[Rfam]
RNA sequence: GGUCUGUGAUGAAUAGUAAAAGGUCUGAUUAUCCAAAGACUUGUACUUCCAUGACCGUUUCUCCCAGCAGUUUCUCACCAGUCACAGCACAGUAAUGGUGUGGCUGGCAGAGUGUUUGCUGACAGCUUGUGAUGUGUUCAGUCCAUGUUAGCCUGAAGUAUCAGAAACAUGACUGGGAUCCGCAUCUGACAGUCUUGCUUGAAGGAGUUUGGGGUCUUGGAUUGUUAUAACUGGACAUGUGAUCUGACUUUUCUGCUGAGACC
Dot-bracket structure: ((((................................(((.(......((((.((......((((((((((.......(((((((((............)))))))))........)))))).......(.((((((.......((((((..(...........).)))))).........)))))))................)))).......)).))))...................).)))..............))))
RNA: Small Cajal body specific RNA 6
Organism: Glareola pratincola